[Rfam]
RNA sequence: UUCGACAAAGGCAAACUCGUCGCGAGACGAGGACGCAAAGCCAUGGGUCUCGUUCGAGAGAUUGCCAGGCUACCGAAG
Numbered sequence: 001u002u003c004g005a006c007a008a009a010g011g012c013a014a015a016c017u018c019g020u021c022g023c024g025a026g027a028c029g030a031g032g033a034c035g036c037a038a039a040g041c042c043a044u045g046g047g048u049c050u051c052g053u054u055c056g057a058g059a060g061a062u063u064g065c066c067a068g069g070c071u072a073c074c075g076a077a078g
Stems, first nucleotide, its partner, number of pairs: 001078001003075002011036002016031006034064001039071004044067003047062003
c-di-GMP-I-GGC riboswitch aptamer: a 78-nucleotide RNA sequence from Symmachiella dynata. It scores 75 bits against the family's covariance model.